[Rfam]
RNA: tRNA
Organism: Saccharomyces cerevisiae
RNA sequence: GGAGAUGUUGUUUUAAGGUUAAACUAUUAGAUUGCAAAUCUACUUAUUAAGAGUUCGAUUCUCUUCAUCUCUU
Numbered sequence: 001g002g003a004g005a006u007g008u009u010g011u012u013u014u015a016a017g018g019u020u021a022a023a024c025u026a027u028u029a030g031a032u033u034g035c036a037a038a039u040c041u042a043c044u045u046a047u048u049a050a051g052a053g054u055u056c057g058a059u060u061c062u063c064u065u066c067a068u069c070u071c072u073u
Base pairs, nucleotide, nucleotide: 001072002071003070004069005068006067007066010024011023012022013021028042029041030040031039049065050064051063052062053061